The record is an 89-nucleotide RNA sequence from Scyliorhinus torazame, which matches "Vault RNA" in Rfam.
Lineage of the source: Eukaryota > Vertebrata > Gnathostomata > Carcharhiniformes > Scyliorhinus.

RNA sequence: ACGUCAGCUUUAGCUCACUGGUUACUUCACAGCAUCAACUUAAUUGCGUGUUCGGACCUGUUUCACCGUGGGCGCUUCCUGGCGUUUUU
Numbered sequence: 001a002c003g004u005c006a007g008c009u010u011u012a013g014c015u016c017a018c019u020g021g022u023u024a025c026u027u028c029a030c031a032g033c034a035u036c037a038a039c040u041u042a043a044u045u046g047c048g049u050g051u052u053c054g055g056a057c058c059u060g061u062u063u064c065a066c067c068g069u070g071g072g073c074g075c076u077u078c079c080u081g082g083c084g085u086u087u088u089u
Stems, first nucleotide, its partner, number of pairs: 002084006013073004019068003026056003
Dot-bracket structure: .((((((.....((((..(((....(((.........................))).........))).)))).....)))))).....

The family's consensus secondary structure is taken from published work.